[Rfam]
RNA sequence: UUGCAAUUCUUGCUGUUCUGAUUUUAAAAUAAUCAGGGCAAGCUAAACAUUCACUGUAAUAAUACCAUGCAUGUGUCUCCAGACCUAGGUCUUUCCCUACGUCUGGUUUUAUCAGUGGUGGUGAUAAAC
Numbered sequence: 001u002u003g004c005a006a007u008u009c010u011u012g013c014u015g016u017u018c019u020g021a022u023u024u025u026a027a028a029a030u031a032a033u034c035a036g037g038g039c040a041a042g043c044u045a046a047a048c049a050u051u052c053a054c055u056g057u058a059a060u061a062a063u064a065c066c067a068u069g070c071a072u073g074u075g076u077c078u079c080c081a082g083a084c085c086u087a088g089g090u091c092u093u094u095c096c097c098u099a100c101g102u103c104u105g106g107u108u109u110u111a112u113c114a115g116u117g118g119u120g121g122u123g124a125u126a127a128a129c
Base pairs, nucleotide, nucleotide: 001053014040015039016038017037018036019035020034021033022032023031064122065121066120067119070117079106080105081104082103083102084101086099087098088097
Description: The record is a 129-nucleotide RNA from Crocuta crocuta, which matches "Small nucleolar RNA SNORA72" in Rfam. The source organism's lineage runs through Eukaryota, Bilateria, Deuterostomia, Carnivora and Crocuta. A search with the family's covariance model found it, with a score of 114 bits. U72 is a member of the H/ACA class of snoRNAs. Rfam classes the family as an H/ACA-box small nucleolar RNA. Pairs were carried over by alignment from the consensus structure, which was predicted with PFOLD.